Selenocysteine insertion sequence 1: a 64-nucleotide RNA sequence from Mytilus galloprovincialis.
The organism belongs to Mytilus, within Eukaryota.
It scores 35 bits against the family's covariance model.
The literature on the family includes a 1996 paper in RNA by Walczak et al., "A novel RNA structural motif in the selenocysteine insertion element of eukaryotic selenoprotein mRNAs".
Gene Ontology term of the family: selenocysteine incorporation.
[Rfam]
RNA sequence: CAUAUAUGUUAUGAUGGUAUGAUUCUAAACCCUAACGAGAGGAAUUGUGCCUGAUAUUCAUAUG
Numbered sequence: 001c002a003u004a005u006a007u008g009u010u011a012u013g014a015u016g017g018u019a020u021g022a023u024u025c026u027a028a029a030c031c032c033u034a035a036c037g038a039g040a041g042g043a044a045u046u047g048u049g050c051c052u053g054a055u056a057u058u059c060a061u062a063u064g
Stems, first nucleotide, its partner, number of pairs: 001064005016051010031039001033037001
Dot-bracket structure: (((((..........((((((((((.....(.(...).)..))))))))))........)))))